[Rfam]
RNA sequence: CAACGUUCACUUUGCUGAUACGCAAAGCGCAUCACACCUCAGGCCAUGGAACGGGGACCUGGG
Numbered sequence: 001c002a003a004c005g006u007u008c009a010c011u012u013u014g015c016u017g018a019u020a021c022g023c024a025a026a027g028c029g030c031a032u033c034a035c036a037c038c039u040c041a042g043g044c045c046a047u048g049g050a051a052c053g054g055g056g057a058c059c060u061g062g063g
Stems, first nucleotide, its partner, number of pairs: 004053005010027005038063006044056002
Dot-bracket structure: ...[[[[[.(((((........)))))..........((((((((...]]]]].)).))))))
A member of the RNA family "Glutamine-II riboswitch aptamer" from Synechococcus sp. WH 5701, 63 nucleotides long.
It is one of the family's seed sequences.
Taxonomically the source falls in Synechococcus (Bacteria, Bacillati, Cyanobacteriota, Synechococcales).
The base pairs follow the family's consensus structure, which is taken from published work.
Gene Ontology term of the family: glutamine binding.